[Rfam]
Nucleotides: 057
Base pairs, nucleotide, nucleotide: 006053008051009050010049011048012047013046014045015044016043017042018041019040020039021038022037023036024035
Number, partner (000 for none) and nucleotide at each position: 001000a002000a003000c004000c005000g006053a007000c008051g009050a010049g011048a012047a013046c014045c015044u016043u017042u018041u019040g020039a021038a022037u023036c024035a025000a026000g027000c028000a029000a030000u031000g032000u033000a034000g035024u036023g037022a038021u039020u040019c041018a042017a043016a044015a045014g046013g047012u048011u049010c050009u051008c052000a053006u054000a055000a056000a057000u

Notes:
Rfam assigns this 57-nucleotide RNA from Xanthoceras sorbifolium to the family "Plastid-ccsA-ndhD-1 3UTR RNA". The sequence is in the family's curated seed alignment. The family's consensus secondary structure was predicted with LocARNA. The organism belongs to Xanthoceras, within Eukaryota. Rfam's curators write: Plastid-ccsA-ndhD-1 is a non-coding RNA (ncRNA) recognised in plastids. It was found in the three prime untranslated region (3UTR) of ccsA and ndhD genes, its 3UTR location suggests a role in transcript maturation. It is annotated as a cis-regulatory element.